[Rfam]
Nucleotides: 565
Stems, first nucleotide, its partner, number of pairs: 001028003010021001012019002037563002039560003043557007052547002056511005061391001063389008071380002077092004101375007113154004125144002128141003159363002162361004168357001169355001170351003173347003180219003184215002186195003200209002225339004230306004236300001239297004309330001311328006395463004400458002407450003424443002428439004470501001476495004517539002520536005
Number, partner (000 for none) and nucleotide at each position: 001028g002027g003026g004000a005000a006000g007000u008000a009000c010021g011000u012019u013018c014000g015000c016000a017000a018013g019012g020000c021010u022000g023000a024000a025000a026003c027002u028001u029000a030000a031000a032000g033000a034000a035000a036000u037563u038562g039560a040559c041558g042000g043557a044556a045555u046554g047553g048552c049551a050000c051000c052547a053546c054000c055000a056511g057510a058509c059508g060507u061391g062000g063389a064388g065387u066386g067385u068384g069383c070382g071380g072379u073000u074000u075000a076000a077092u078091u079090u080089g081000a082000c083000u084000c085000a086000a087000c088000a089080c090079g091078g092077g093000a094000a095000a096000c097000c098000u099000u100000a101375c102374c103373a104372g105371g106370a107369c108000a109000g110000g111000a112000c113154a114153a115152c116151g117000g118000a119000a120000g121000g122000a123000u124000u125144g126143a127000c128141a129140g130139g131000c132000u133000g134000a135000u136000a137000g138000c139130c140129c141128u142000u143126u144125c145000u146000u147000g148000a149000u150000u151116c152115g153114u154113u155000u156000g157000a158000c159363g160362g161000u162361g163360g164359u165358g166000c167000a168357u169355g170351g171350c172349c173347g174346c175345u176000u177000u178000u179000g180219g181218u182217c183000g184215g185214u186195g187194a188193a189000g190000u191000g192000a193188u194187u195186u196000g197000u198000u199000u200209g201208g202000u203000u204000g205000a206000u207000u208201c209200c210000u211000u212000u213000a214185a215184c216000g217182g218181a219180c220000g221000a222000g223000a224000c225339c226338c227337a228336a229000u230306c231305c232304g233303c234000u235000u236300a237000c238000u239297a240296g241295g242294g243000g244000c245000g246000c247000c248000a249000u250000c251000u252000c253000u254000g255000c256000g257000g258000g259000u260000c261000c262000c263000c264000c265000c266000g267000c268000u269000c270000c271000g272000g273000c274000g275000g276000g277000g278000u279000g280000g281000c282000c283000c284000g285000g286000a287000u288000a289000g290000c291000g292000a293000c294242u295241c296240c297239u298000u299000c300236u301000u302000c303233g304232c305231g306230g307000c308000a309330u310000u311328c312327c313326a314325u315324g316323c317000g318000c319000c320000u321000u322000a323316g324315c325314a326313u327312g328311g329000u330309g331000g332000c333000a334000u335000u336228u337227u338226g339225g340000g341000c342000a343000a344000c345175a346174g347173c348000a349172g350171g351170u352000c353000c354000g355169u356000g357168a358165u359164g360163c361162u362160c363159c364000u365000a366000a367000a368000u369107g370106u371105c372104c373103u374102g375101g376000g377000c378000g379072a380071c381000a382070c383069g384068c385067g386066c387065a388064c389063u390000a391061c392000a393000a394000u395463g396462a397461c398460a399000a400458a401457g402000u403000g404000a405000a406000u407450g408449a409448g410000u411000g412000a413000a414000a415000c416000c417000u418000u419000c420000g421000g422000g423000u424443c425442c426000u427000g428439c429438u430437c431436c432000g433000a434000c435000a436431g437430g438429a439428g440000u441000g442425g443424g444000a445000a446000a447000a448409c449408u450407u451000c452000g453000a454000a455000a456000a457401c458400u459000a460398u461397g462396u463395c464000g465000u466000g467000c468000u469000u470501g471000g472000g473000a474000u475000c476495g477494a478493a479492g480000c481000u482000u483000g484000c485000a486000a487000u488000u489000a490000u491000u492479c493478u494477u495476c496000u497000u498000g499000a500000a501470c502000g503000a504000g505000g506000a507060a508059u509058g510057u511056c512000u513000a514000g515000u516000a517539g518538a519000c520536g521535u522534g523533c524532u525000u526000c527000a528000u529000c530000a531000a532524a533523g534522c535521a536520c537000a538518u539517u540000g541000a542000c543000u544000a545000c546053g547052u548000c549000c550000c551049u552048g553047c554046c555045a556044u557043u558041u559040g560039u561000a562038c563037a564000c565000a
The family of this 565-nucleotide part of an RNA from Perkinsela sp. CCAP 1560/4 is "Eukaryotic small subunit ribosomal RNA". Its family is annotated with structural constituent of ribosome and ribosome in the Gene Ontology. On this family, see Cannone et al., BMC Bioinformatics 2002: "The comparative RNA web (CRW) site: an online database of comparative sequence and structure information for ribosomal, intron, and other RNAs".